[Rfam]
Nucleotides: 053
Base pairs, nucleotide, nucleotide: 005049006048007047008046009045010044015038018040019039021036022035023034024033025032
Number, partner (000 for none) and nucleotide at each position: 001000u002000a003000a004000a005049u006048g007047a008046g009045u010044a011000g012000a013000a014000g015038c016000g017000g018040u019039u020000a021036a022035g023034a024033g025032u026000a027000a028000u029000c030000a031000a032025a033024c034023u035022c036021u037000g038015g039019g040018a041000c042000a043000u044010u045009g046008c047007u048006c049005a050000a051000a052000a053000g
The family of this 53-nucleotide RNA sequence from Vibrio ziniensis is "Xanthine riboswitch aptamer (NMT1 RNA)". The literature on the family includes a 2021 paper in Nucleic Acids Res by Xu et al., "Insights into xanthine riboswitch structure and metal ion-mediated ligand recognition". The family's consensus secondary structure is taken from published work.